[Rfam]
RNA: pemK RNA
Organism: Ruthenibacterium lactatiformans
RNA sequence: ACAAUGAUACUUCUGUCGAGUCGAGGUUAAGUCCCAGACGGCAGCCCGGUGAGAACCACGGGGAGUGAAACGCACUAUGA
Numbered sequence: 001a002c003a004a005u006g007a008u009a010c011u012u013c014u015g016u017c018g019a020g021u022c023g024a025g026g027u028u029a030a031g032u033c034c035c036a037g038a039c040g041g042c043a044g045c046c047c048g049g050u051g052a053g054a055a056c057c058a059c060g061g062g063g064a065g066u067g068a069a070a071c072g073c074a075c076u077a078u079g080a
Stems, first nucleotide, its partner, number of pairs: 012077001013044006045063003049059003064076002